[Rfam]
RNA sequence: AUAUAUUUAGGAAAUGAAGUUCUUCCCAAAAUUUAUAUUUUAAACCGCUAUAAGCUAAUGACUUCUGCACUUGC
Numbered sequence: 001a002u003a004u005a006u007u008u009a010g011g012a013a014a015u016g017a018a019g020u021u022c023u024u025c026c027c028a029a030a031a032u033u034u035a036u037a038u039u040u041u042a043a044a045c046c047g048c049u050a051u052a053a054g055c056u057a058a059u060g061a062c063u064u065c066u067g068c069a070c071u072u073g074c
Base pairs, nucleotide, nucleotide: 010026011025012024013023016065017064018063019062020061021060047055048054049053

Background:
The record is a 74-nucleotide RNA from Anaerococcus prevotii, which matches "Fluoride riboswitch aptamer (crcB RNA motif)" in Rfam. The match comes from Rfam's covariance-model search (43 bits). The base pairs follow the family's consensus structure, which is taken from published work.